[Rfam]
RNA sequence: AUAUUUUUAGGGAAUGAAGUACUCCCUUGAUAAUUAUAAUCUAAAACGCGUUGGCUGAUGACUUCUACAUUUUU
Numbered sequence: 001a002u003a004u005u006u007u008u009a010g011g012g013a014a015u016g017a018a019g020u021a022c023u024c025c026c027u028u029g030a031u032a033a034u035u036a037u038a039a040u041c042u043a044a045a046a047c048g049c050g051u052u053g054g055c056u057g058a059u060g061a062c063u064u065c066u067a068c069a070u071u072u073u074u
Base pairs, nucleotide, nucleotide: 010026011025012024013023016065017064018063019062020061048055049054